[Rfam]
RNA sequence: CUAACAGAGUUUAUUGGCAUUCUGUCCACCUCCACUUCCUACUCUCUCUCUCUCUCUCUCUACCCAUGAAUAUGGAGGUGGGCAUACUGUCAACUGAGCUCUGUUGG
Numbered sequence: 001c002u003a004a005c006a007g008a009g010u011u012u013a014u015u016g017g018c019a020u021u022c023u024g025u026c027c028a029c030c031u032c033c034a035c036u037u038c039c040u041a042c043u044c045u046c047u048c049u050c051u052c053u054c055u056c057u058c059u060c061u062a063c064c065c066a067u068g069a070a071u072a073u074g075g076a077g078g079u080g081g082g083c084a085u086a087c088u089g090u091c092a093a094c095u096g097a098g099c100u101c102u103g104u105u106g107g
Stems, first nucleotide, its partner, number of pairs: 011097001014093006023084011